Shown here is an 86-nucleotide sequence from Xiphophorus maculatus, a member of the family "mir-135 microRNA precursor family".

RNA sequence: UUCCCAGUUCACUGUAUGGCUUUUUAUUCCUAUCUGACUGUGCUAAUGGCUCAUAUAGGGAUGGAAGCCAUGCACUGCGCAGGGAG
Number, nucleotide and partner (000 for none) at each position: 001u000002u085003c084004c083005c082006a000007g080008u079009u000010c077011a076012c000013u074014g073015u072016a071017u070018g069019g068020c067021u066022u065023u064024u000025u000026a062027u061028u060029c059030c058031u057032a056033u055034c000035u053036g052037a051038c000039u000040g000041u000042g000043c000044u000045a000046a000047u000048g000049g000050c000051u037052c036053a035054u000055a033056u032057a031058g030059g029060g028061a027062u026063g000064g023065a022066a021067g020068c019069c018070a017071u016072g015073c014074a013075c000076u011077g010078c000079g008080c007081a000082g005083g004084g003085a002086g000
A search with the family's covariance model found it, with a score of 70 bits.
Taxonomically the source falls in Xiphophorus (Eukaryota, Actinopteri, Osteoglossocephalai, Ovalentaria).
Its family is annotated with RISC complex and gene silencing by miRNA in the Gene Ontology.
For this family Rfam cites "Identification of tissue-specific microRNAs from mouse" (Lagos-Quintana et al., Curr Biol, 2002).